[Rfam]
RNA: S4-Flavobacteria ribosomal protein leader
RNA sequence: GCGCUGUCGAAGGAUAUAGACCUGAAUUCACAGUAC
Dot-bracket structure: (.(((((.(.(((.......))).....)))))).)